[Rfam]
RNA sequence: UGAAUAUUUGGGAAUGACGCCUCCCAGGGUUUAAGUGCUACUUGGCCCAAACCGUUUAAAUUAAACUAAUGGCUUCUACUUCUUG
Dot-bracket structure: .........((((..[[.[[[))))............................((((.....))))....]]].]].........
This 85-nucleotide RNA sequence from Ignavigranum ruoffiae belongs to the Rfam family "Fluoride riboswitch aptamer (crcB RNA motif)". Taxonomically the source falls in Ignavigranum (Bacteria, Bacillati, Bacilli, Lactobacillales). Pairs were carried over by alignment from the consensus structure, which is taken from published work.